Shown here is a 31-nucleotide RNA sequence from Mus musculus, a member of the family "Iron response element II". Rfam describes the family as follows. IRE, TFRC, SLC40A1, SDHB, SLC11A2, CDC42BPA, ACO2, ALAS2_H.SAPIENS, CDC14A, EPAS1, ALAS2, qoxD, Hao1, NDUFS1, transferrin, Aconitate. Taxonomically the source falls in Mus (Eukaryota, Deuterostomia, Amniota, Theria). It scores 32 bits against the family's covariance model. The base pairs follow the family's consensus structure, which is taken from published work.

RNA sequence: UAUAUAUCUGAAACAGAGUUUUCAAUAUGUU
Dot-bracket structure: .((((((.((((((...).))))))))))).